[Rfam]
RNA sequence: UUCUUAUCAAGAGAGGUGGAGGGACUGGCCCUAUGAAGCCCGGCAACCAUAAGACUUUAAGUUAAAUUUAAAGUUUAUAAGGUGCUAAAUCCUGUAGCUAUAAAGCUAAGAGAUAAGAG
Numbered sequence: 001u002u003c004u005u006a007u008c009a010a011g012a013g014a015g016g017u018g019g020a021g022g023g024a025c026u027g028g029c030c031c032u033a034u035g036a037a038g039c040c041c042g043g044c045a046a047c048c049a050u051a052a053g054a055c056u057u058u059a060a061g062u063u064a065a066a067u068u069u070a071a072a073g074u075u076u077a078u079a080a081g082g083u084g085c086u087a088a089a090u091c092c093u094g095u096a097g098c099u100a101u102a103a104a105g106c107u108a109a110g111a112g113a114u115a116a117g118a119g
Base pairs, nucleotide, nucleotide: 001119002118003117004116005115006114007113008112013041015040016039017038021031022030023029025094027092028091042086043085044084045083047082048081049078050077051076052075090111095108096107097106098105099104
Shown here is a 119-nucleotide sequence from Clostridium sp. DSM 8431, a member of the family "SAM riboswitch aptamer (S box leader)".
It scores 90 bits against the family's covariance model.
Pairs were carried over by alignment from the consensus structure, which is taken from published work.
Its family is annotated with regulation of gene expression in the Gene Ontology.
Taxonomically the source falls in Clostridium (Bacteria, Bacillati, Bacillota, Eubacteriales).